[Rfam]
RNA sequence: UUAGAAAAAUGGCAAACUUAGUGAAAGCUAAGGACGCAAAGCUAUGGGUCGUAGAGGUAUACCUAACGAUUGCCAGGUUGCCAAC
Dot-bracket structure: ...........((...((((((....))))))...))..((((.((((((....(((....)))...)))..)))))))......
Background
c-di-GMP-I riboswitch aptamer: an 85-nucleotide RNA from Desulfosporosinus sp. Sb-LF. The base pairs follow the family's consensus structure, which is taken from published work. On this family, see Sudarsan et al., Science 2008: "Riboswitches in Eubacteria Sense the Second Messenger Cyclic Di-GMP". The family has 155 seed sequences and 5,092 matches in Rfam 15.1. NCBI's taxonomy places the organism under Bacteria, Bacillati, Clostridia, Desulfitobacteriaceae, Desulfosporosinus.